[Rfam]
RNA sequence: GGCUAUCCUGCAGCCGUUCUUCACUGGCUAGUUUUAUGUCACUGUCAAGCAGCUAAAGCUGCCAGUUGAAGAACUGUUGAGGUUGGC
Dot-bracket structure: ....(.(...((....((((((...(((.(((((((.................))))))))))....))))))....))..).)...
Rfam assigns this 87-nucleotide RNA sequence from Callorhinchus milii to the family "mir-22 microRNA precursor family".
The source organism's lineage runs through Eukaryota, Metazoa, Craniata, Chondrichthyes and Callorhinchus.
Pairs were carried over by alignment from the consensus structure, which was predicted with RNAalifold.